[Rfam]
RNA sequence: UGCCGAAGUUUUCCUCGUUAGUUAACUGCAGCCGGUUCUUUAAAAUUUCGACAGUUAACUGCCGAGGGACAU
Numbered sequence: 001u002g003c004c005g006a007a008g009u010u011u012u013c014c015u016c017g018u019u020a021g022u023u024a025a026c027u028g029c030a031g032c033c034g035g036u037u038c039u040u041u042a043a044a045a046u047u048u049c050g051a052c053a054g055u056u057a058a059c060u061g062c063c064g065a066g067g068g069a070c071a072u
Stems, first nucleotide, its partner, number of pairs: 012068002015065003019061010
MIR2629 microRNA precursor family: a 72-nucleotide RNA from Medicago truncatula.
The match comes from Rfam's covariance-model search (67 bits).
Rfam links the family to the GO terms miRNA-mediated post-transcriptional gene silencing and RISC complex.